Overview: Rfam assigns this 66-nucleotide RNA sequence to the family "DUF3800-VIII RNA". The sequence is in the family's curated seed alignment. From the family's description: Bacteroidetes, Cyanobacteria, Firmicutes, Planctomycetes (1 example), Proteobacteria, Tenericutes (1 example).
[Rfam]
RNA sequence: AAUCCCCUGAUCUGACCGAAGCCCAACGCGCCGCGCCGGGUACACAGGUAGGCAGAUCGGGGGAUU
Numbered sequence: 001a002a003u004c005c006c007c008u009g010a011u012c013u014g015a016c017c018g019a020a021g022c023c024c025a026a027c028g029c030g031c032c033g034c035g036c037c038g039g040g041u042a043c044a045c046a047g048g049u050a051g052g053c054a055g056a057u058c059g060g061g062g063g064a065u066u
Stems, first nucleotide, its partner, number of pairs: 001066013016052002021041004027035003